[Rfam]
RNA: Small nucleolar RNA SNORD121A
Organism: Labrus bergylta
RNA sequence: UAUAAGGAGAUGAUGAUGGUAAUAACAAGCACAUAUCUCAAUACAAUCUGUGGAAAAAAAAUAAUUCUGAAUCUCCUCAUU
Numbered sequence: 001u002a003u004a005a006g007g008a009g010a011u012g013a014u015g016a017u018g019g020u021a022a023u024a025a026c027a028a029g030c031a032c033a034u035a036u037c038u039c040a041a042u043a044c045a046a047u048c049u050g051u052g053g054a055a056a057a058a059a060a061a062u063a064a065u066u067c068u069g070a071a072u073c074u075c076c077u078c079a080u081u
Stems, first nucleotide, its partner, number of pairs: 002080002005077002008074004